[Rfam]
RNA sequence: UUGUCACCUGGAGUUCUCCUCAAAUCACUUCAGUUGCUAGCUAACUAAAGCUUGCAGUGGCACUGUUUUAUUAGUGUGCAAUGCCGGGAUAUACAACAUUGUAUACUGAAGUGUUUGGGGGAACUCUGGGUGGCAA
Dot-bracket structure: ....(((((.((((((((((.(((.(((((((((......................................................................)))))))))))))))))))))).)))))....
RNA: mir-395 microRNA precursor family